[Rfam]
RNA sequence: GUAGAUGCUCAUUCCAACCCUUAUGUUCGCGUUUAUGCUUCAUAGCUACGCCUCAUAAACCCGGGAAUGACGCAGAGCCAAAUUAGGGUGCCUAUUGUCCAUCCUCUUGAUGAAUUUUCAUCAGACAUCCCGGACAAACCGUUGAGUGAGGCACCACCUGUUGUCUUUGAUCCGACCUUAUGCACUUGCCUUGAUGGCAAGUGUUUUUUU
Numbered sequence: 001g002u003a004g005a006u007g008c009u010c011a012u013u014c015c016a017a018c019c020c021u022u023a024u025g026u027u028c029g030c031g032u033u034u035a036u037g038c039u040u041c042a043u044a045g046c047u048a049c050g051c052c053u054c055a056u057a058a059a060c061c062c063g064g065g066a067a068u069g070a071c072g073c074a075g076a077g078c079c080a081a082a083u084u085a086g087g088g089u090g091c092c093u094a095u096u097g098u099c100c101a102u103c104c105u106c107u108u109g110a111u112g113a114a115u116u117u118u119c120a121u122c123a124g125a126c127a128u129c130c131c132g133g134a135c136a137a138a139c140c141g142u143u144g145a146g147u148g149a150g151g152c153a154c155c156a157c158c159u160g161u162u163g164u165c166u167u168u169g170a171u172c173c174g175a176c177c178u179u180a181u182g183c184a185c186u187u188g189c190c191u192u193g194a195u196g197g198c199a200a201g202u203g204u205u206u207u208u209u210u
Base pairs, nucleotide, nucleotide: 001078002077006074007073008072009070010069011068012067015065027050087155088154089153090152091151092150093149097135098134099133100132109122110121111120112119163171164170165169182204183203184202185201186200187199188198189197190196